[Rfam]
RNA: Purine riboswitch aptamer
RNA sequence: GUUUGACAAUGUUAUAGAGUGCGUAUAAUUCUGGGAAUAUGGCCCAAAGUCUCUACCGGACACCGUAAAUGAUCCGACUACGCAGGCAAGCAGGAACGCG
Dot-bracket structure: ...................((((((...((.((((.......))))))........((((((.......)).))))..))))))................